[Rfam]
SL2 RNA: a 108-nucleotide RNA sequence from Nippostrongylus brasiliensis. For this family Rfam cites "trans splicing of polycistronic Caenorhabditis elegans pre-mRNAs: analysis of the SL2 RNA" (Evans and Blumenthal, Mol Cell Biol, 2000). This family represents SL2 RNA. SL2 RNA is involved in trans splicing in lower eukaryotes. Trans-splicing is a form of RNA processing. The acquisition of a spliced leader from a SL RNA is a intra-molecular reaction which precisely joins exons derived from separately transcribed RNAs. Approximately 25% of C. elegans genes are organised into polycistronic transcription units and the presence of SL2 on an mRNA is an indication the the gene is in an operon. Lineage of the source: Eukaryota > Nematoda > Rhabditida > Rhabditomorpha > Nippostrongylus. Pairs were carried over by alignment from the consensus structure, which is taken from published work. The family is grouped with related families in Rfam's "SL clan".

Nucleotides: 108
Base pairs, nucleotide, nucleotide: 008034009031010030013029014028016025018023037061038060039059040058041056042055044053045052085104086103087102091097092096
Number, partner (000 for none) and nucleotide at each position: 001000g002000g003000u004000a005000a006000u007000u008034a009031c010030c011000c012000a013029g014028u015000a016025u017000c018023u019000c020000a021000a022000g023018g024000u025016a026000c027000u028014a029013c030010g031009g032000g033000c034008u035000u036000c037061c038060g039059a040058c041056c042055a043000u044053c045052c046000g047000c048000u049000u050000g051000c052045g053044g054000u055042u056041g057000u058040g059039u060038c061037g062000u063000u064000a065000c066000c067000u068000a069000a070000a071000u072000u073000u074000u075000u076000g077000g078000a079000c080000g081000g082000c083000c084000u085104u086103u087102c088000c089000g090000g091097g092096g093000u094000a095000u096092c097091c098000g099000g100000g101000a102087g103086g104085g105000c106000a107000a108000c